[Rfam]
RNA sequence: AGGUCACUGAUGAUGCCCAAACUGGUCUUUAAGAGAAAUGAUGACCUGAAAACCAUGCUCAAUAGAAUUAUGUUGGGGUUA
Dot-bracket structure: .(((((.((.............................................................)).))..))).
Numbered sequence: 001a002g003g004u005c006a007c008u009g010a011u012g013a014u015g016c017c018c019a020a021a022c023u024g025g026u027c028u029u030u031a032a033g034a035g036a037a038a039u040g041a042u043g044a045c046c047u048g049a050a051a052a053c054c055a056u057g058c059u060c061a062a063u064a065g066a067a068u069u070a071u072g073u074u075g076g077g078g079u080u081a
Stems, first nucleotide, its partner, number of pairs: 002080003005075002008072002

Record summary: Rfam assigns this 81-nucleotide RNA sequence from Chrysochloris asiatica to the family "Small nucleolar RNA SNORD115". It is annotated as a C/D-box small nucleolar RNA. The match comes from Rfam's covariance-model search (51 bits). Taxonomically the source falls in Chrysochloris (Eukaryota, Gnathostomata, Amniota, Mammalia). A reference for the family is Cavaille et al. (2000), "Identification of brain-specific and imprinted small nucleolar RNA genes exhibiting an unusual genomic organization", Proc Natl Acad Sci U S A. The base pairs follow the family's consensus structure, which was predicted with PFOLD. Rfam 15.1 lists 3,387 matches to the family in 131 species.